Record summary
The record is a 94-nucleotide RNA sequence from Zingiber officinale, which matches "Small nucleolar RNA R11/Z151" in Rfam. Pairs were carried over by alignment from the consensus structure, which was predicted with PFOLD. The family's RNA type in Rfam is C/D-box small nucleolar RNA.
[Rfam]
RNA sequence: UGGCUGAUGAUGAAUAAUCUCUACGAUCUUAGCGGAUUUCAGUGAGACUUUCUGGUCUAUGAUCACAAAAUUGCUGUUACACACACUGAAGCUC
Numbered sequence: 001u002g003g004c005u006g007a008u009g010a011u012g013a014a015u016a017a018u019c020u021c022u023a024c025g026a027u028c029u030u031a032g033c034g035g036a037u038u039u040c041a042g043u044g045a046g047a048c049u050u051u052c053u054g055g056u057c058u059a060u061g062a063u064c065a066c067a068a069a070a071u072u073g074c075u076g077u078u079a080c081a082c083a084c085a086c087u088g089a090a091g092c093u094c
Stems, first nucleotide, its partner, number of pairs: 002093004